[Rfam]
RNA sequence: CCAAAAUUAGCCGCUUAUUGUUUUCUAAUUGAUUCUUAGUGCGUUAAAAUUUUAUAAGAACCAAUUAGAAAAUAACAAGUGACUAGUUUUGG
Numbered sequence: 001c002c003a004a005a006a007u008u009a010g011c012c013g014c015u016u017a018u019u020g021u022u023u024u025c026u027a028a029u030u031g032a033u034u035c036u037u038a039g040u041g042c043g044u045u046a047a048a049a050u051u052u053u054a055u056a057a058g059a060a061c062c063a064a065u066u067a068g069a070a071a072a073u074a075a076c077a078a079g080u081g082a083c084u085a086g087u088u089u090u091g092g
Base pairs, nucleotide, nucleotide: 002091003090004089005088006087007086008085009084010083012081013080014079015078016077018075019074020073021072022071023070024069025068026067027066028065029064030063031062033060034059035058036057037056038055